[Rfam]
RNA: mir-8364 microRNA precursor family
Organism: Pristionchus pacificus
RNA sequence: UCUUCAUUUCGCACACUCUCUCGCCCACUAGAGCGCCGAGAGAGUGUGCGAAAUGGAGAGA
Dot-bracket structure: (((((((..(.((((((.((((...............)))).)))))).)..)))))))..
Numbered sequence: 001u002c003u004u005c006a007u008u009u010c011g012c013a014c015a016c017u018c019u020c021u022c023g024c025c026c027a028c029u030a031g032a033g034c035g036c037c038g039a040g041a042g043a044g045u046g047u048g049c050g051a052a053a054u055g056g057a058g059a060g061a
Stems, first nucleotide, its partner, number of pairs: 001059007010050001012048006019041004